A member of the RNA family "Insect-Specific Flavivirus 3' UTR repeats Ra" from Culex flavivirus, 58 nucleotides long.
Pairs were carried over by alignment from the consensus structure, which was predicted with LocARNA.
Rfam's curators write: 3' UTR in insect specific flavivirus families present three to four repeats of conserved element Ra.
By type it is a cis-regulatory element.
RNA sequence: GCCCACGCUAGGGGGUAGAGUAGACUCAUCUCCGGGUGUUGACGACACCCCGACCCCA
Number, nucleotide and partner (000 for none) at each position: 001g000002c000003c000004c000005a000006c052007g051008c000009u000010a000011g000012g000013g033014g032015g031016u000017a029018g000019a000020g000021u000022a000023g000024a000025c000026u000027c000028a000029u017030c000031u015032c014033c013034g050035g049036g048037u047038g046039u045040u000041g000042a000043c000044g000045a039046c038047a037048c036049c035050c034051c007052g006053a000054c000055c000056c000057c000058a000